[Rfam]
Rhodo-rpoB RNA: a 95-nucleotide RNA sequence from Nioella halotolerans.
Nucleotides: 095
Stems, first nucleotide, its partner, number of pairs: 001043005010031008066095005071089005
Number, partner (000 for none) and nucleotide at each position: 001043g002042g003041a004040u005039c006000g007000g008000g009000a010031g011030c012029u013028u014027g015026c016025c017024g018000g019000u020000g021000g022000g023000a024017c025016g026015g027014c028013a029012g030011g031010c032000a033000u034000g035000a036000a037000u038000u039005g040004a041003u042002c043001c044000g045000g046000a047000c048000c049000c050000g051000c052000c053000c054000g055000u056000u057000u058000c059000a060000g061000u062000g063000c064000g065000a066095c067094g068093c069092a070091u071089g072088g073087c074086c075085g076000g077000u078000g079000c080000c081000c082000c083000g084000a085075c086074g087073g088072c089071c090000g091070a092069u093068g094067u095066g
A search with the family's covariance model found it, with a score of 80 bits.